[Rfam]
RNA sequence: ACUCUAUGAGUACAACAGUACCUUUGACUUCCAAUCAAAUAGCUCUUAGCGAAAAUCUAAGAUAGAGUA
Numbered sequence: 001a002c003u004c005u006a007u008g009a010g011u012a013c014a015a016c017a018g019u020a021c022c023u024u025u026g027a028c029u030u031c032c033a034a035u036c037a038a039a040u041a042g043c044u045c046u047u048a049g050c051g052a053a054a055a056u057c058u059a060a061g062a063u064a065g066a067g068u069a
Base pairs, nucleotide, nucleotide: 001068002067003066004065005064006063007062010021011020012019013018023039024038025037026036027035045061046060047059048058049057
RNA: tRNA